About this RNA
This 37-nucleotide sequence from Niastella vici belongs to the Rfam family "DUF805b RNA". The match comes from Rfam's covariance-model search (40 bits). The source organism's lineage runs through Bacteria, Bacteroidota, Chitinophagia, Chitinophagales and Niastella. Pairs were carried over by alignment from the consensus structure, which is taken from published work. The family's RNA type in Rfam is cis-regulatory element. The family is grouped with related families in Rfam's "DUF805 clan".
[Rfam]
RNA sequence: CCAGGGAAAGCCGAAAACCUGUUUAAGAGAGUAGGCG
Numbered sequence: 001c002c003a004g005g006g007a008a009a010g011c012c013g014a015a016a017a018c019c020u021g022u023u024u025a026a027g028a029g030a031g032u033a034g035g036c037g
Base pairs, nucleotide, nucleotide: 002021003020004019005018010036011035012034